Shown here is a 78-nucleotide sequence from Fukomys damarensis, a member of the family "mir-296 microRNA precursor family". NCBI's taxonomy places the organism under Eukaryota, Vertebrata, Gnathostomata, Dipnotetrapodomorpha, Fukomys. The match comes from Rfam's covariance-model search (88 bits).
RNA sequence: AGGGUCCUUCCAGAGGGCCCCCCUCAAUCCUGUUGUGCUCGCUUCAGAGGGUUGGAUGGAGGCUCUCCCGAAGGGCUC
Numbered sequence: 001a002g003g004g005u006c007c008u009u010c011c012a013g014a015g016g017g018c019c020c021c022c023c024u025c026a027a028u029c030c031u032g033u034u035g036u037g038c039u040c041g042c043u044u045c046a047g048a049g050g051g052u053u054g055g056a057u058g059g060a061g062g063c064u065c066u067c068c069c070g071a072a073g074g075g076c077u078c
Base pairs, nucleotide, nucleotide: 006074007073008072009071010070013067014066015065016064017063018062019061021059022058023055025054026053027052028051029050030049031048033047034046035045